A member of the RNA family "Small nucleolar RNA SNORA43" from Vicugna pacos, 133 nucleotides long. Clan: SNORA17 clan. The match comes from Rfam's covariance-model search (100 bits). Rfam describes the family as follows. ACA43 is a member of the H/ACA class of snoRNA that guide the sites of modification of uridines to pseudouridines.

[Rfam]
RNA sequence: GAUGGCGGACCUGUCGGGACCACGGAUGCACUGCCCCGCUGCACCCGUGACGUCGGGGCACAGAGGAAGCGGCCAUUUCUAUGCUCAGCGCUCAGAACAGUGGGCACUAAGAAUGCUCUGUAGCCGGACAGUA
Numbered sequence: 001g002a003u004g005g006c007g008g009a010c011c012u013g014u015c016g017g018g019a020c021c022a023c024g025g026a027u028g029c030a031c032u033g034c035c036c037c038g039c040u041g042c043a044c045c046c047g048u049g050a051c052g053u054c055g056g057g058g059c060a061c062a063g064a065g066g067a068a069g070c071g072g073c074c075a076u077u078u079c080u081a082u083g084c085u086c087a088g089c090g091c092u093c094a095g096a097a098c099a100g101u102g103g104g105c106a107c108u109a110a111g112a113a114u115g116c117u118c119u120g121u122a123g124c125c126g127g128a129c130a131g132u133a
Stems, first nucleotide, its partner, number of pairs: 003060002006055003022048004071125003080115002084111002090105005